mir-90 microRNA precursor family: an 81-nucleotide RNA sequence. For this family Rfam cites "An extensive class of small RNAs in Caenorhabditis elegans" (Lee and Ambros, Science, 2001).
[Rfam]
RNA sequence: AGCUUCGAGCGGUUUUCAACAGCUAUAUCAACCGACAACUGAUCUGCGCGUUGAUAUGUUGUUUGAAUGCCCCUUGAAUCG
Numbered sequence: 001a002g003c004u005u006c007g008a009g010c011g012g013u014u015u016u017c018a019a020c021a022g023c024u025a026u027a028u029c030a031a032c033c034g035a036c037a038a039c040u041g042a043u044c045u046g047c048g049c050g051u052u053g054a055u056a057u058g059u060u061g062u063u064u065g066a067a068u069g070c071c072c073c074u075u076g077a078a079u080c081g
Base pairs, nucleotide, nucleotide: 004078005077006076007075008074009073011071012070013069015067016066017065018063019062020061021060022059023058025057026056027055028054029053030052031051032050033048034047

Record summary:
Pairs were carried over by alignment from the consensus structure, which was predicted with RNAalifold.